RNA: mir-989 microRNA precursor family
RNA sequence: ACGUUGUGAAUCAGCCACUACAUCGCAGUCACGUGAUUGUAUGUUUCGGAAGAAAAGCAAACGCACGGCCAUUUCCCCAACACGGAGGAGUGGCAACCUUAAAGAUGCCCGUCUUCUUCUCUUCUGCUCAAAUGUACUUUAAUUUAUAUUUCAUGUGAUGUGACGUAGUGGAACAUUCCUGACG
Number, nucleotide and partner (000 for none) at each position: 001a000002c000003g183004u182005u181006g180007u000008g178009a177010a176011u000012c000013a000014g000015c171016c170017a169018c168019u167020a166021c165022a000023u163024c162025g161026c160027a000028g000029u158030c157031a156032c155033g000034u153035g152036a151037u000038u000039g000040u000041a000042u000043g000044u000045u000046u000047c000048g000049g000050a000051a000052g000053a000054a000055a000056a000057g000058c000059a000060a000061a000062c000063g000064c000065a000066c000067g000068g000069c000070c000071a000072u000073u000074u000075c000076c000077c000078c000079a000080a000081c000082a000083c000084g000085g000086a000087g000088g000089a000090g000091u000092g000093g000094c000095a000096a000097c000098c000099u000100u000101a000102a000103a000104g000105a000106u000107g000108c000109c000110c000111g000112u000113c000114u000115u000116c000117u000118u000119c000120u000121c000122u000123u000124c000125u000126g000127c000128u000129c000130a000131a000132a000133u000134g000135u000136a000137c000138u000139u000140u000141a000142a000143u000144u000145u000146a000147u000148a000149u000150u000151u036152c035153a034154u000155g032156u031157g030158a029159u000160g026161u025162g024163a023164c000165g021166u020167a019168g018169u017170g016171g015172a000173a000174c000175a000176u010177u009178c008179c000180u006181g005182a004183c003184g000